Background
This 100-nucleotide sequence from Vigna radiata belongs to the Rfam family "Small nucleolar RNA R32/R81/Z41". The family has 6 seed sequences and 238 matches in Rfam 15.1. A reference for the family is Barneche et al. (2001), "Identification of 66 box C/D snoRNAs in Arabidopsis thaliana: extensive gene duplications generated multiple isoforms predicting new ribosomal RNA 2'-O-methylation sites", J Mol Biol.
RNA sequence: AAGUGAACAUGAUGAAAAAAAAGAUGAGUGAUCAUCAAACAUUACAUAAGAUGUUUGAUAUGAUCAAAUUCUCCAUCGCUUCGUUCUUUCUGAUUCACCU
Numbered sequence: 001a002a003g004u005g006a007a008c009a010u011g012a013u014g015a016a017a018a019a020a021a022a023g024a025u026g027a028g029u030g031a032u033c034a035u036c037a038a039a040c041a042u043u044a045c046a047u048a049a050g051a052u053g054u055u056u057g058a059u060a061u062g063a064u065c066a067a068a069u070u071c072u073c074c075a076u077c078g079c080u081u082c083g084u085u086c087u088u089u090c091u092g093a094u095u096c097a098c099c100u
Base pairs, nucleotide, nucleotide: 004097005096006095007094